[Rfam]
RNA: Plastid-rps18 3UTR RNA
Organism: Camellia sinensis
RNA sequence: CCCAAGUUUUUUACGAUUAAGAAGCACUCGUCUCUUGUACAGAUCGUGCAUUAAUCU
Numbered sequence: 001c002c003c004a005a006g007u008u009u010u011u012u013a014c015g016a017u018u019a020a021g022a023a024g025c026a027c028u029c030g031u032c033u034c035u036u037g038u039a040c041a042g043a044u045c046g047u048g049c050a051u052u053a054a055u056c057u
Base pairs, nucleotide, nucleotide: 018037019036020035021034022033024031025030